[Rfam]
RNA sequence: UGCCUGAAAGGGUGACGUGGCAACGCGGAGCGAGAAGUCAGCAGAGGCCAUAGUAGUUCCGGUAUGGAACGAAGGGC
Numbered sequence: 001u002g003c004c005u006g007a008a009a010g011g012g013u014g015a016c017g018u019g020g021c022a023a024c025g026c027g028g029a030g031c032g033a034g035a036a037g038u039c040a041g042c043a044g045a046g047g048c049c050a051u052a053g054u055a056g057u058u059c060c061g062g063u064a065u066g067g068a069a070c071g072a073a074g075g076g077c
Stems, first nucleotide, its partner, number of pairs: 001014005038045002047077003056070006

Group II catalytic intron D1-D4-1: a 77-nucleotide RNA sequence from Marinobacter sp. R17. The match comes from Rfam's covariance-model search (54 bits). For this family Rfam cites "The ins and outs of group II introns" (Bonen and Vogel, Trends Genet, 2001).